[Rfam]
RNA sequence: GUUGCAGUUUCAUUUUGUGACCGACACUAACGGGUAGUAACGGGUUAACAAAGUCGUUUUUCUGGCCUUUUACUCGUUUUUGCGAUCACAAAUUCUGAAAUUGCA
Numbered sequence: 001g002u003u004g005c006a007g008u009u010u011c012a013u014u015u016u017g018u019g020a021c022c023g024a025c026a027c028u029a030a031c032g033g034g035u036a037g038u039a040a041c042g043g044g045u046u047a048a049c050a051a052a053g054u055c056g057u058u059u060u061u062c063u064g065g066c067c068u069u070u071u072a073c074u075c076g077u078u079u080u081u082g083c084g085a086u087c088a089c090a091a092a093u094u095c096u097g098a099a100a101u102u103g104c105a
Stems, first nucleotide, its partner, number of pairs: 003105005010098003014092007022084002025082002029078008

The record is a 105-nucleotide sequence from Drosophila willistoni, which matches "mir-274 microRNA precursor family" in Rfam. NCBI's taxonomy places the organism under Eukaryota, Protostomia, Altocrustacea, Hexapoda, Sophophora. The base pairs follow the family's consensus structure, which was predicted with RNAalifold. Its family is annotated with RISC complex and miRNA-mediated post-transcriptional gene silencing in the Gene Ontology. The literature on the family includes a 2003 paper in Genome Biol by Lai et al., "Computational identification of Drosophila microRNA genes".